[Rfam]
RNA: Plastid-ccsA-ndhD-1 3UTR RNA
RNA sequence: GCCUUUGUAAGAACCUUUUGAAUCAAACUAGUGAUUCAAAAGGUUCUUACAAA
Number, nucleotide and partner (000 for none) at each position: 001g000002c000003c000004u000005u000006u000007g050008u049009a048010a047011g046012a045013a044014c043015c042016u041017u040018u039019u038020g037021a036022a035023u034024c033025a032026a000027a000028c000029u000030a000031g000032u025033g024034a023035u022036u021037c020038a019039a018040a017041a016042g015043g014044u013045u012046c011047u010048u009049a008050c007051a000052a000053a000